[Rfam]
RNA sequence: GGUUGUGUCGGUUUGAUCGGGAUACUCAUCAAAUAAUAUCGAAAACCGAGGAUGUUCCUUUUGUUAAUGGCGGGCCACAUAAACUCGUAAGAGGUAAGUCGCAAGACCGGUGGAUUACAAAGACGGAGGACUCUCAAUCAUUGAUUUCUCGGAGUUUCAUCACAUCAUCGGGCAACCCCUUUU
Numbered sequence: 001g002g003u004u005g006u007g008u009c010g011g012u013u014u015g016a017u018c019g020g021g022a023u024a025c026u027c028a029u030c031a032a033a034u035a036a037u038a039u040c041g042a043a044a045a046c047c048g049a050g051g052a053u054g055u056u057c058c059u060u061u062u063g064u065u066a067a068u069g070g071c072g073g074g075c076c077a078c079a080u081a082a083a084c085u086c087g088u089a090a091g092a093g094g095u096a097a098g099u100c101g102c103a104a105g106a107c108c109g110g111u112g113g114a115u116u117a118c119a120a121a122g123a124c125g126g127a128g129g130a131c132u133c134u135c136a137a138u139c140a141u142u143g144a145u146u147u148c149u150c151g152g153a154g155u156u157u158c159a160u161c162a163c164a165u166c167a168u169c170g171g172g173c174a175a176c177c178c179c180u181u182u183u
Stems, first nucleotide, its partner, number of pairs: 054131003058128001060127006068119002075113004083095003098107003
The record is a 183-nucleotide RNA from Prevotella sp. S7 MS 2, which matches "Bacteroidales-1 6S-Bacteroidales RNA suggested" in Rfam. Lineage of the source: Bacteria > Pseudomonadati > Bacteroidales > Prevotellaceae > Prevotella. Rfam describes the family as follows. Bacteroidales-1 was first reported in a comparative genomics-based approach of genome and metagenome sequences from Weinberg et al. 2010 In a high-resolution transcriptome map study of Bacteroides thetaiotaomicron, Ryan et al. 2020 report this sRNA as 6S RNA homologue of Bacteroides, in the study they obtain evidence of small product RNAs (pRNAs) related to 6S function. The base pairs follow the family's consensus structure, which is taken from published work.